[Rfam]
RNA: mir-9/mir-79 microRNA precursor family
Nucleotides: 076
Stems, first nucleotide, its partner, number of pairs: 001076005007070002011066007019058001021056006028049005
Number, partner (000 for none) and nucleotide at each position: 001076u002075u003074g004073u005072u006000c007070u008069u009000a010000a011066c012065u013064u014063u015062g016061g017060u018000a019058a020000c021056c022055u023054a024053g025052c026051u027000u028049u029048a030047u031046g032045a033000c034000g035000u036000a037000a038000a039000a040000c041000u042000c043000a044000c045032u046031c047030a048029u049028a050000c051026a052025g053024c054023u055022a056021g057000a058019u059000a060017a061016c062015c063014a064013a065012a066011g067000a068000a069008a070007a071000u072005a073004g074003c075002a076001a